[Rfam]
This 200-nucleotide sequence from Asparagus officinalis belongs to the Rfam family "U2 spliceosomal RNA". The family's RNA type in Rfam is spliceosomal small nuclear RNA. Rfam describes the family as follows. U2 is a small nuclear RNA (snRNA) component of the spliceosome (involved in pre-mRNA splicing). Complementary binding between U2 snRNA (in an area lying towards the 5' end but 3' to hairpin I) and the branchpoint sequence (BPS) of the intron results the bulging out of an unpaired adenosine, on the BPS, which initiates a nucleophilic attack at the intronic 5' splice site, thus starting the first of two transesterification reactions that mediate splicing. The organism belongs to Asparagus, within Eukaryota. The match comes from Rfam's covariance-model search (140 bits). Rfam links the family to the GO terms pre-mRNA branch point binding, U2 snRNP and mRNA branch site recognition.
RNA sequence: AUACCUUUCUCGGCCUUUUGGCUAAGAUCAAGUGUAGUAUCUGUUCUUAUCAGUUUAUAAUAUCUGAUACAUGGGCUAUUGGCCCACUAUGAUAGUAAAUUAAUUUUUAUUGGGGGAGAGCCCAUCCUGAACAGCUUGCUGCGGGCGCCCCAAGCGUCGCGCCAUGUGUUGCACUAUUUCAAGGGUGUGACGCACUCCUA
Numbered sequence: 001a002u003a004c005c006u007u008u009c010u011c012g013g014c015c016u017u018u019u020g021g022c023u024a025a026g027a028u029c030a031a032g033u034g035u036a037g038u039a040u041c042u043g044u045u046c047u048u049a050u051c052a053g054u055u056u057a058u059a060a061u062a063u064c065u066g067a068u069a070c071a072u073g074g075g076c077u078a079u080u081g082g083c084c085c086a087c088u089a090u091g092a093u094a095g096u097a098a099a100u101u102a103a104u105u106u107u108u109a110u111u112g113g114g115g116g117a118g119a120g121c122c123c124a125u126c127c128u129g130a131a132c133a134g135c136u137u138g139c140u141g142c143g144g145g146c147g148c149c150c151c152a153a154g155c156g157u158c159g160c161g162c163c164a165u166g167u168g169u170u171g172c173a174c175u176a177u178u179u180c181a182a183g184g185g186u187g188u189g190a191c192g193c194a195c196u197c198c199u200a
Stems, first nucleotide, its partner, number of pairs: 008027003012023004048069006072086006115151002118148001120146003132141003154193006162184002165181002